[Rfam]
RNA sequence: AAUAGCCAAAAAUCCGGGCUGGAUUUAAGUUAGGCUGAAUCAAUCGCACCUGAUCAACCAACGGAUCAUACAGCCCACCCCAUUGGGUUGCCUUAAGCACUAGCAGCAGUGCCCCGCCUCCCAGCAAGACCAAAUGAAUUCCCAAGAUGGUGGUCAUUUUGUUGCCAUCAUUCCA
Numbered sequence: 001a002a003u004a005g006c007c008a009a010a011a012a013u014c015c016g017g018g019c020u021g022g023a024u025u026u027a028a029g030u031u032a033g034g035c036u037g038a039a040u041c042a043a044u045c046g047c048a049c050c051u052g053a054u055c056a057a058c059c060a061a062c063g064g065a066u067c068a069u070a071c072a073g074c075c076c077a078c079c080c081c082a083u084u085g086g087g088u089u090g091c092c093u094u095a096a097g098c099a100c101u102a103g104c105a106g107c108a109g110u111g112c113c114c115c116g117c118c119u120c121c122c123a124g125c126a127a128g129a130c131c132a133a134a135u136g137a138a139u140u141c142c143c144a145a146g147a148u149g150g151u152g153g154u155c156a157u158u159u160u161g162u163u164g165c166c167a168u169c170a171u172u173c174c175a
Base pairs, nucleotide, nucleotide: 133172134171135170136169137168143164144163145162
A member of the RNA family "Antisense RNA which regulates isiA expression" from Thermocoleostomius sinensis, 175 nucleotides long. It scores 111 bits against the family's covariance model. The organism belongs to Thermocoleostomius sinensis, within Bacteria. On this family, see Duhring et al., Proc Natl Acad Sci U S A 2006: "An internal antisense RNA regulates expression of the photosynthesis gene isiA".